[Rfam]
The family of this 86-nucleotide RNA is "c-di-GMP-II-GAG riboswitch aptamer". The family's consensus secondary structure is taken from published work. Gene Ontology terms of the family: cyclic-di-GMP binding and regulation of gene expression. For this family Rfam cites "Bioinformatic analysis of riboswitch structures uncovers variant classes with altered ligand specificity" (Weinberg et al., Proc Natl Acad Sci U S A, 2017). Clan: c-di-GMP_II riboswitch clan.
RNA sequence: ACAAACGCGGGAGGCUCUGACACACGGUCCCCAACCCGGUCGCCUUGGAUCGUGCCGAGCCACUGGCGAGACCGUCCCGCGAACGG
Numbered sequence: 001a002c003a004a005a006c007g008c009g010g011g012a013g014g015c016u017c018u019g020a021c022a023c024a025c026g027g028u029c030c031c032c033a034a035c036c037c038g039g040u041c042g043c044c045u046u047g048g049a050u051c052g053u054g055c056c057g058a059g060c061c062a063c064u065g066g067c068g069a070g071a072c073c074g075u076c077c078c079g080c081g082a083a084c085g086g
Stems, first nucleotide, its partner, number of pairs: 002085001006081006013061003023054007038073002040069005